Shown here is a 104-nucleotide RNA from Erinaceus europaeus, a member of the family "Small nucleolar RNA SNORD46".
Clan: SNORD46 clan.
NCBI's taxonomy places the organism under Eukaryota, Teleostomi, Dipnotetrapodomorpha, Eulipotyphla, Erinaceus.
From the family's description: U40 is a C/D box small nucleolar RNA, also known as snoZ153 in plants. The human sequence has also been annotated in the sequence databases as U46.

[Rfam]
RNA sequence: AACUAGAGUGAUGAAAAAGUGCCCUUAGGCGUGGUUGUGACCGUCUUGGUCGCAUUUGUGCCACUUGCCGAUGCAGGGAUCUGUCAUAGUUACACUGACUGGUA
Numbered sequence: 001a002a003c004u005a006g007a008g009u010g011a012u013g014a015a016a017a018a019g020u021g022c023c024c025u026u027a028g029g030c031g032u033g034g035u036u037g038u039g040a041c042c043g044u045c046u047u048g049g050u051c052g053c054a055u056u057u058g059u060g061c062c063a064c065u066u067g068c069c070g071a072u073g074c075a076g077g078g079a080u081c082u083g084u085c086a087u088a089g090u091u092a093c094a095c096u097g098a099c100u101g102g103u104a
Stems, first nucleotide, its partner, number of pairs: 002103005